[Rfam]
RNA: A. fumigatus sRNA Afu_309
Organism: Carpinus fangiana
RNA sequence: UUUGUUUCACGCAAAACAGGUUUGUGUCCAGCGCUCCCGGGCGUGAGUCUUUCUCCGGAGAGGCGCACGGUUUUCGGUCGAGUUCUGCGACAGCUUGGUCAUUUCGUGGUGUCGUCGUUUAAGUUACGUGGAUGACUAUCCGGCCAACAAAUCUAAGAACAAACUGGCUGCUAGAUUAAACGAGUCUUGAGCUCUUCACGAGGGCAACCUCUGUGAAUGAGCUCGGCUGCUGCUGGCAUGCUGGGGGAGCCAUAUUCCCCAUGCCCAUAACCGAUGGCCGUUGGCUAGUGAUGUCUGGGAUCAACCAUGGCUCUUACAUUU
Numbered sequence: 001u002u003u004g005u006u007u008c009a010c011g012c013a014a015a016a017c018a019g020g021u022u023u024g025u026g027u028c029c030a031g032c033g034c035u036c037c038c039g040g041g042c043g044u045g046a047g048u049c050u051u052u053c054u055c056c057g058g059a060g061a062g063g064c065g066c067a068c069g070g071u072u073u074u075c076g077g078u079c080g081a082g083u084u085c086u087g088c089g090a091c092a093g094c095u096u097g098g099u100c101a102u103u104u105c106g107u108g109g110u111g112u113c114g115u116c117g118u119u120u121a122a123g124u125u126a127c128g129u130g131g132a133u134g135a136c137u138a139u140c141c142g143g144c145c146a147a148c149a150a151a152u153c154u155a156a157g158a159a160c161a162a163a164c165u166g167g168c169u170g171c172u173a174g175a176u177u178a179a180a181c182g183a184g185u186c187u188u189g190a191g192c193u194c195u196u197c198a199c200g201a202g203g204g205c206a207a208c209c210u211c212u213g214u215g216a217a218u219g220a221g222c223u224c225g226g227c228u229g230c231u232g233c234u235g236g237c238a239u240g241c242u243g244g245g246g247g248a249g250c251c252a253u254a255u256u257c258c259c260c261a262u263g264c265c266c267a268u269a270a271c272c273g274a275u276g277g278c279c280g281u282u283g284g285c286u287a288g289u290g291a292u293g294u295c296u297g298g299g300a301u302c303a304a305c306c307a308u309g310g311c312u313c314u315u316a317c318a319u320u321u
Stems, first nucleotide, its partner, number of pairs: 018154008026091003029087003033083004037077005042070001043068003047064002050061004099146001102143002164240001169238006183228004189224006195217006246314008262300001264299004270294002276286004
Dot-bracket structure: .................((((((((((((((.(((((((((((((.((.((((....)))).)).))).)..)))))..)))).))).))).......(..((......................................))..))))))))).........(....((((((........((((..((((((((((((...........)))))).))))))))))....)))))).).....((((((((........(.((((..((....((((...))))......)).)))))......)))))))).......